[Rfam]
Nucleotides: 089
Base pairs, nucleotide, nucleotide: 003087004086005085006084007083008082009081012078013077016074017073018072019071020070021069022068026064027063028062029061030060031059034057035056036055037054
Number, partner (000 for none) and nucleotide at each position: 001000a002000a003087a004086u005085a006084a007083u008082c009081g010000g011000g012078c013077a014000c015000c016074u017073a018072a019071g020070u021069a022068g023000u024000u025000g026064a027063u028062a029061c030060a031059a032000g033000g034057g035056c036055g037054a038000u039000a040000a041000u042000g043000u044000a045000a046000a047000a048000g049000a050000a051000c052000u053000u054037u055036c056035g057034c058000a059031u060030u061029g062028u063027g064026u065000g066000a067000c068022c069021u070020a071019c072018u073017u074016a075000a076000a077013u078012g079000c080000u081009c082008g083007a084006u085005u086004g087003u088000u089000u